[Rfam]
RNA sequence: AAAGCAGGCUGCAAUUGCAGCGCUUCCUGCUGUGGGAGUGCUGCCAUUUUCCUGCUGAGAGCAACUCUGUUAAUACUGUCUGUGGUUUCACCCACACCCUGGUGAAAGCAUUUGUUCUUAACAUGGACAAGU
Numbered sequence: 001a002a003a004g005c006a007g008g009c010u011g012c013a014a015u016u017g018c019a020g021c022g023c024u025u026c027c028u029g030c031u032g033u034g035g036g037a038g039u040g041c042u043g044c045c046a047u048u049u050u051c052c053u054g055c056u057g058a059g060a061g062c063a064a065c066u067c068u069g070u071u072a073a074u075a076c077u078g079u080c081u082g083u084g085g086u087u088u089c090a091c092c093c094a095c096a097c098c099c100u101g102g103u104g105a106a107a108g109c110a111u112u113u114g115u116u117c118u119u120a121a122c123a124u125g126g127a128c129a130a131g132u
Base pairs, nucleotide, nucleotide: 003056004055005054006053007052008051018043019042020041021040022039023038024037025036026035065126066125068123069122070121071120072119073118075116083110084109086107087106088105089104090103091102092101
This 132-nucleotide RNA sequence from Rhagologus leucostigma belongs to the Rfam family "Small nucleolar RNA SNORA69". By type it is an H/ACA-box small nucleolar RNA. Rfam's curators write: U69 is a member of the H/ACA class of small nucleolar RNAs (snoRNAs) which act as guides in the the modification of uridines to pseudouridines. NCBI's taxonomy places the organism under Eukaryota, Vertebrata, Neoaves, Pachycephalidae, Rhagologus.